[Rfam]
Shown here is a 72-nucleotide sequence from Fukomys damarensis, a member of the family "mir-153 microRNA precursor family". Lineage of the source: Eukaryota > Eumetazoa > Dipnotetrapodomorpha > Rodentia > Fukomys. The family's consensus secondary structure was predicted with RNAalifold.
RNA sequence: GCCAGUGUCAUUUUUGUGAUUUUCAGCUAGUGUUCUCAUUCCACUUGCAUAGGCACAAAAGUGCCCCUUGGC
Numbered sequence: 001g002c003c004a005g006u007g008u009c010a011u012u013u014u015u016g017u018g019a020u021u022u023u024c025a026g027c028u029a030g031u032g033u034u035c036u037c038a039u040u041c042c043a044c045u046u047g048c049a050u051a052g053g054c055a056c057a058a059a060a061g062u063g064c065c066c067c068u069u070g071g072c
Stems, first nucleotide, its partner, number of pairs: 002071004007066001009063010020052001022049001024047003028043001
Rfam 15.1 lists 1,565 matches to the family in 711 species. A search with the family's covariance model found it, with a score of 58 bits. Its family is annotated with miRNA-mediated post-transcriptional gene silencing and RISC complex in the Gene Ontology.